[Rfam]
Background: A member of the RNA family "Lysine riboswitch aptamer" from Shewanella denitrificans, 170 nucleotides long.
RNA sequence: AGGCACAGAAGAGGCGCGUUAACUAGGUAAUAAGUCGGAGAAUACCCCAUUCUUUGAUGGCUUAUGAGGGAGUUUAACGCCGAGGCAACAUACGUGGUGGUAUUGUUGUCGGUCGGUUAGGCUGAAUCCUAACGAUUGUCACCUUUUUAUGGUGGAGAGCUUCUGGUGAC
Numbered sequence: 001a002g003g004c005a006c007a008g009a010a011g012a013g014g015c016g017c018g019u020u021a022a023c024u025a026g027g028u029a030a031u032a033a034g035u036c037g038g039a040g041a042a043u044a045c046c047c048c049a050u051u052c053u054u055u056g057a058u059g060g061c062u063u064a065u066g067a068g069g070g071a072g073u074u075u076a077a078c079g080c081c082g083a084g085g086c087a088a089c090a091u092a093c094g095u096g097g098u099g100g101u102a103u104u105g106u107u108g109u110c111g112g113u114c115g116g117u118u119a120g121g122c123u124g125a126a127u128c129c130u131a132a133c134g135a136u137u138g139u140c141a142c143c144u145u146u147u148u149a150u151g152g153u154g155g156a157g158a159g160c161u162u163c164u165g166g167u168g169a170c
Stems, first nucleotide, its partner, number of pairs: 006165006016080007024072001030065008084110007092101002111137004116133006139155005
A search with the family's covariance model found it, with a score of 91 bits. The organism belongs to Shewanella denitrificans, within Bacteria.